Shown here is a 409-nucleotide sequence from Leptobrachium leishanense, a member of the family "Nuclear RNase P". Rfam classes the family as a ribozyme. The source organism's lineage runs through Eukaryota, Metazoa, Dipnotetrapodomorpha, Amphibia and Leptobrachium.
[Rfam]
RNA sequence: GCGGAAGGGAAGCUCAAUAUUGAGGUUACGCACGGAGUGCGUCGCUGAUGUGACGUCACUCACAACUCUCCUCGGGGAAGGUCUGAGAGAAGAGCCCAAUGCCAUCCUUGCAGGGUGUCGCUCGAAACGCAGGGCGAGUGAGUCCCCAGAAACACCACGCAGGAGUGGAACGGUCCGCAGCGUGGCGUGGCAACAUGCAGGAGAAGCCGAGCGGCGCGCGGCUGGGAAGGGGCUGGGCCACCGACCUGAGGUCCAGCCCCGGAUCACGCGCGCCGCCCUGUGGAUGCAGUCACCCACCUGGGCUUUGGAAGUGGCUCACGGCUUGCACACUCAGUUCAAUGGCUGAGGCGGGGCAGUGCACGGGAUGUGUGCGCGCCUCGCAACCCAAUUCAGACUACUCUCCCACCGC
Numbered sequence: 001g002c003g004g005a006a007g008g009g010a011a012g013c014u015c016a017a018u019a020u021u022g023a024g025g026u027u028a029c030g031c032a033c034g035g036a037g038u039g040c041g042u043c044g045c046u047g048a049u050g051u052g053a054c055g056u057c058a059c060u061c062a063c064a065a066c067u068c069u070c071c072u073c074g075g076g077g078a079a080g081g082u083c084u085g086a087g088a089g090a091a092g093a094g095c096c097c098a099a100u101g102c103c104a105u106c107c108u109u110g111c112a113g114g115g116u117g118u119c120g121c122u123c124g125a126a127a128c129g130c131a132g133g134g135c136g137a138g139u140g141a142g143u144c145c146c147c148a149g150a151a152a153c154a155c156c157a158c159g160c161a162g163g164a165g166u167g168g169a170a171c172g173g174u175c176c177g178c179a180g181c182g183u184g185g186c187g188u189g190g191c192a193a194c195a196u197g198c199a200g201g202a203g204a205a206g207c208c209g210a211g212c213g214g215c216g217c218g219c220g221g222c223u224g225g226g227a228a229g230g231g232g233c234u235g236g237g238c239c240a241c242c243g244a245c246c247u248g249a250g251g252u253c254c255a256g257c258c259c260c261g262g263a264u265c266a267c268g269c270g271c272g273c274c275g276c277c278c279u280g281u282g283g284a285u286g287c288a289g290u291c292a293c294c295c296a297c298c299u300g301g302g303c304u305u306u307g308g309a310a311g312u313g314g315c316u317c318a319c320g321g322c323u324u325g326c327a328c329a330c331u332c333a334g335u336u337c338a339a340u341g342g343c344u345g346a347g348g349c350g351g352g353g354c355a356g357u358g359c360a361c362g363g364g365a366u367g368u369g370u371g372c373g374c375g376c377c378u379c380g381c382a383a384c385c386c387a388a389u390u391c392a393g394a395c396u397a398c399u400c401u402c403c404c405a406c407c408g409c
Stems, first nucleotide, its partner, number of pairs: 001409004008403003013347004018342001021074005035061005040055005083393005093323004103117005118137006138319007159303002348381007